[Rfam]
RNA sequence: GGAAGGGUGGCUGAGUGGUCUAAAGUACCUGACUCGAAAUCAGACGUGGGCGCAAGUUCACCGUGGGUUCGAAUCCCACCCCUUCCG
Numbered sequence: 001g002g003a004a005g006g007g008u009g010g011c012u013g014a015g016u017g018g019u020c021u022a023a024a025g026u027a028c029c030u031g032a033c034u035c036g037a038a039a040u041c042a043g044a045c046g047u048g049g050g051c052g053c054a055a056g057u058u059c060a061c062c063g064u065g066g067g068u069u070c071g072a073a074u075c076c077c078a079c080c081c082c083u084u085c086c087g
Stems, first nucleotide, its partner, number of pairs: 001086007010026003029043004063079005
The family of this 87-nucleotide RNA sequence from Prosthecobacter dejongeii is "tRNA". The family's consensus secondary structure is taken from published work. NCBI's taxonomy places the organism under Bacteria, Verrucomicrobiia, Verrucomicrobiales, Verrucomicrobiaceae, Prosthecobacter. It scores 58 bits against the family's covariance model.